This 75-nucleotide RNA sequence from Penicillium ucsense belongs to the Rfam family "bZIP non canonical Hac1/Xbp1 intron". Rfam 15.1 lists 1,325 matches to the family in 1,320 species. bZIP intron RNA is a non-canonical intron that was first reported in HAC1 gene in yeast and XBP1 gene in Metazoa. Lineage of the source: Eukaryota > saccharomyceta > Pezizomycotina > Eurotiales > Penicillium. It scores 48 bits against the family's covariance model. The literature on the family includes a 2011 paper in RNA Biol by Hooks and Griffiths-Jones, "Conserved RNA structures in the non-canonical Hac1/Xbp1 intron".

[Rfam]
RNA sequence: AGGCCUCCUCCGACGUGACACAACAUCCUGCCGCGAUGUUGUGCCCAUCAGACCUGCAGUGUCCGUCGGUGGCCU
Numbered sequence: 001a002g003g004c005c006u007c008c009u010c011c012g013a014c015g016u017g018a019c020a021c022a023a024c025a026u027c028c029u030g031c032c033g034c035g036a037u038g039u040u041g042u043g044c045c046c047a048u049c050a051g052a053c054c055u056g057c058a059g060u061g062u063c064c065g066u067c068g069g070u071g072g073c074c075u
Base pairs, nucleotide, nucleotide: 001075002074003073004072005071007069011068012067013066014065015064022040023039024038025037026036027035051063052062053061